[Rfam]
RNA sequence: UGAAAGUGUACCUAGGGUUCCAGCCUAUUUAUAGGUGUUCGGACCGAGCGGUACAGGUAUAUUUUAUAUACCACACCUUAGGGACAAAAGCCCGGGAGGA
Numbered sequence: 001u002g003a004a005a006g007u008g009u010a011c012c013u014a015g016g017g018u019u020c021c022a023g024c025c026u027a028u029u030u031a032u033a034g035g036u037g038u039u040c041g042g043a044c045c046g047a048g049c050g051g052u053a054c055a056g057g058u059a060u061a062u063u064u065u066a067u068a069u070a071c072c073a074c075a076c077c078u079u080a081g082g083g084a085c086a087a088a089a090g091c092c093c094g095g096g097a098g099g100a
Base pairs, nucleotide, nucleotide: 007055008054009053010052011051012050015045016044020042021041022039023036024035025034026033027032056072057071058070059069060068061067074095076098081093082092083091
A member of the RNA family "Guanidine-I riboswitch aptamer" from Thermoanaerobacter brockii, 100 nucleotides long. NCBI's taxonomy places the organism under Bacteria, Bacillota, Thermoanaerobacterales, Thermoanaerobacter, Thermoanaerobacter brockii.